[Rfam]
RNA sequence: ACUGUGGAGUAUACAAGAACUUGUGAGUAGUAUAUUUAAUUUAAAAUUAAAUUACAAAAGCAUAUACGUUGAAUCAGUAA
Dot-bracket structure: ((((....(((((........(((.....(((..((((((.....)))))).)))....)))))))).......))))..
Numbered sequence: 001a002c003u004g005u006g007g008a009g010u011a012u013a014c015a016a017g018a019a020c021u022u023g024u025g026a027g028u029a030g031u032a033u034a035u036u037u038a039a040u041u042u043a044a045a046a047u048u049a050a051a052u053u054a055c056a057a058a059a060g061c062a063u064a065u066a067c068g069u070u071g072a073a074u075c076a077g078u079a080a
Stems, first nucleotide, its partner, number of pairs: 001078004009067005022062003030055003035051006